Rfam assigns this 323-nucleotide sequence from Bos taurus to the family "Small Cajal body-specific RNA 7". Rfam 15.1 lists 570 matches to the family in 531 species. NCBI's taxonomy places the organism under Eukaryota, Chordata, Craniata, Pecora, Bos. A reference for the family is Darzacq et al. (2002), "Cajal body-specific small nuclear RNAs: a novel class of 2'-O-methylation and pseudouridylation guide RNAs", EMBO J. The pairing is the family consensus, mapped onto this sequence.

[Rfam]
RNA sequence: UGGAAAUGAUGAAAUAGAGAUAAUUGGGUGUUAAAUGUUGUAUGAUUAGAAAAUUUUAAUAUCUAAGUAAUCUUAAGUUUAAUAUUUUUUAACUGAUAGUGUGUGUAUGUGCGUGUGCAUGUGUGUGUGCUUGUGGAGGCUAUGAAAAGGGGGCACUGACUGGUGAUGCUGAUACUGGAGUGCAUCUGAGGCUGUUGUAGAAGUGCAUGGGUUGUUGAUUACAACAUUGCCUAUGAUUAUAGCCCAGGAGCAGCUCACCUAGUAGCCUAGCACCUUAAAAUCUCUGACAGGUUCACUGAACGUGGUCCUGUGAUCUGAUCCAA
Numbered sequence: 001u002g003g004a005a006a007u008g009a010u011g012a013a014a015u016a017g018a019g020a021u022a023a024u025u026g027g028g029u030g031u032u033a034a035a036u037g038u039u040g041u042a043u044g045a046u047u048a049g050a051a052a053a054u055u056u057u058a059a060u061a062u063c064u065a066a067g068u069a070a071u072c073u074u075a076a077g078u079u080u081a082a083u084a085u086u087u088u089u090u091a092a093c094u095g096a097u098a099g100u101g102u103g104u105g106u107a108u109g110u111g112c113g114u115g116u117g118c119a120u121g122u123g124u125g126u127g128u129g130c131u132u133g134u135g136g137a138g139g140c141u142a143u144g145a146a147a148a149g150g151g152g153g154c155a156c157u158g159a160c161u162g163g164u165g166a167u168g169c170u171g172a173u174a175c176u177g178g179a180g181u182g183c184a185u186c187u188g189a190g191g192c193u194g195u196u197g198u199a200g201a202a203g204u205g206c207a208u209g210g211g212u213u214g215u216u217g218a219u220u221a222c223a224a225c226a227u228u229g230c231c232u233a234u235g236a237u238u239a240u241a242g243c244c245c246a247g248g249a250g251c252a253g254c255u256c257a258c259c260u261a262g263u264a265g266c267c268u269a270g271c272a273c274c275u276u277a278a279a280a281u282c283u284c285u286g287a288c289a290g291g292u293u294c295a296c297u298g299a300a301c302g303u304g305g306u307c308c309u310g311u312g313a314u315c316u317g318a319u320c321c322a323a
Stems, first nucleotide, its partner, number of pairs: 001322004193226008202216004206211001